[Rfam]
RNA: Nucleoid-associated noncoding RNA 4 (CssrE)
RNA sequence: GGUCGGAUAAGACGCAUAGCGUCGCAUCCGACAACCGAUGCCUGAUGCGCCGCUGACGCGACUUAUCAGGCC
Numbered sequence: 001g002g003u004c005g006g007a008u009a010a011g012a013c014g015c016a017u018a019g020c021g022u023c024g025c026a027u028c029c030g031a032c033a034a035c036c037g038a039u040g041c042c043u044g045a046u047g048c049g050c051c052g053c054u055g056a057c058g059c060g061a062c063u064u065a066u067c068a069g070g071c072c
Base pairs, nucleotide, nucleotide: 002032003031004030005029006028007027008026011023012022013021014020040071041070042069043068044067045066046065047064049062051060052059053058